[Rfam]
RNA sequence: CAAUUUACAUAGCAGACCAUAGCAGAAGUGCUCACAGCACAGCUCUGUCCUAUUCCAAUGAAUCCGCGAAUUCUGCU
Dot-bracket structure: .............[[.[...((((((((((.......))).]]]....(..((((....))))..)....)))))))

Description: Shown here is a 77-nucleotide RNA from Alligator mississippiensis, a member of the family "Mammalian CPEB3 ribozyme". The match comes from Rfam's covariance-model search (38 bits). Gene Ontology term of the family: RNA nuclease activity. On this family, see Salehi-Ashtiani et al., Science 2006: "A genomewide search for ribozymes reveals an HDV-like sequence in the human CPEB3 gene".